The family of this 78-nucleotide RNA sequence from Parnassius apollo is "Mammalian CPEB3 ribozyme". The match comes from Rfam's covariance-model search (54 bits). Lineage of the source: Eukaryota > Metazoa > Eumetazoa > Neoptera > Parnassius. Gene Ontology term of the family: RNA nuclease activity.

[Rfam]
RNA sequence: AUUUCAUUUUAGGGGGUCAUUGUAGAAGCGUGUUUGUCGCGACCCCUGCCAGCCCUUUUUCAGGGCUGCAAUUCUACA
Numbered sequence: 001a002u003u004u005c006a007u008u009u010u011a012g013g014g015g016g017u018c019a020u021u022g023u024a025g026a027a028g029c030g031u032g033u034u035u036g037u038c039g040c041g042a043c044c045c046c047u048g049c050c051a052g053c054c055c056u057u058u059u060u061c062a063g064g065g066c067u068g069c070a071a072u073u074c075u076a077c078a
Base pairs, nucleotide, nucleotide: 013046014045015044016043017042018041021078022077023076024075025074026073027072028040029039030038050068051067052066053065054064055063056062